[Rfam]
RNA sequence: GAAUGCCUGUCUGGUAAGGUCUAACCAACCGCCAGUAGUGAGUCUUGGGUGACUGUCAGUAAUGGUAGUUGCUAAGCGUAGACAGCGAGAAAAUAGAGAGUGUGAUUGAGCCUCGAAAUUUUGACAUUUAGAAGGCUGACGUUCUAAUUUUGACGUAAAGCAAUACAAAUCAAUUCGCAUUGGUGAGAAAUGGUUUGCUUCUGCGGGGUCAAAGAGCA
Dot-bracket structure: ..........((((...(((.[.[[..))).))))..((..(((((((((((((((((....)))))))))))...)).)))).))....................((.((((((.............(((((((((..((((........))))...)))....(((((((.(((......]].]))).)))))))))))))))))))).)......

About this RNA:
Rfam assigns this 218-nucleotide RNA from Blautia faecicola to the family "Group II catalytic intron D1-D4-6". Rfam's curators write: Group II introns are found in rRNA, tRNA and mRNA of organelles in fungi, plants and protists, and also in mRNA in bacteria.